[Rfam]
Overview
mir-8517 microRNA precursor family: a 110-nucleotide RNA from Plutella xylostella. Lineage of the source: Eukaryota > Dicondylia > Panorpida > Yponomeutoidea > Plutella.
RNA sequence: UUACUGGACGCUUUAGCUAAUUAACUGUUUUGUCACUCUCUUACAGAGAACAAUUUGUUCUUUGACAGAGAGUGACAAAACAGUUCUUUAUGAAUAAGGGGGUUAGUCUC
Numbered sequence: 001u002u003a004c005u006g007g008a009c010g011c012u013u014u015a016g017c018u019a020a021u022u023a024a025c026u027g028u029u030u031u032g033u034c035a036c037u038c039u040c041u042u043a044c045a046g047a048g049a050a051c052a053a054u055u056u057g058u059u060c061u062u063u064g065a066c067a068g069a070g071a072g073u074g075a076c077a078a079a080a081c082a083g084u085u086c087u088u089u090a091u092g093a094a095u096a097a098g099g100g101g102g103u104u105a106g107u108c109u110c
Stems, first nucleotide, its partner, number of pairs: 003107004011099005018090003023085006029069007049059004